[Rfam]
RNA sequence: AGAGGUUGCAAGGGCAAGACCACAGCAGAAUUGCUCAUGGUGCAGCCCUGUCAGAUUCCAGUGAAUCUACAAAUUCUGCA
Numbered sequence: 001a002g003a004g005g006u007u008g009c010a011a012g013g014g015c016a017a018g019a020c021c022a023c024a025g026c027a028g029a030a031u032u033g034c035u036c037a038u039g040g041u042g043c044a045g046c047c048c049u050g051u052c053a054g055a056u057u058c059c060a061g062u063g064a065a066u067c068u069a070c071a072a073a074u075u076c077u078g079c080a
Base pairs, nucleotide, nucleotide: 013048014047018046020045025079026078027077028076029075030074032042033041053068054067055066056065057064058063
Dot-bracket structure: ............[[...[.[....((((((.((.......))..]]]]....((((((....)))))).....)))))).